[Rfam]
RNA sequence: CCGCACGCAGAAAGUCGAUAUUGUCAUUCAAUGGCUCUCUCGUCGAUUACGUGUGCCAUACCAACGCCAUUGGUAUCAUUCCUCGUCUUCUUAGGCACGGAACAUCGAAAUUUGGCUACACUU
Numbered sequence: 001c002c003g004c005a006c007g008c009a010g011a012a013a014g015u016c017g018a019u020a021u022u023g024u025c026a027u028u029c030a031a032u033g034g035c036u037c038u039c040u041c042g043u044c045g046a047u048u049a050c051g052u053g054u055g056c057c058a059u060a061c062c063a064a065c066g067c068c069a070u071u072g073g074u075a076u077c078a079u080u081c082c083u084c085g086u087c088u089u090c091u092u093a094g095g096c097a098c099g100g101a102a103c104a105u106c107g108a109a110a111u112u113u114g115g116c117u118a119c120a121c122u123u
Stems, first nucleotide, its partner, number of pairs: 003056006016042003020038001023035003066116004074108001079102004085096004
RNA: Caenorhabditis snoRNA ceN48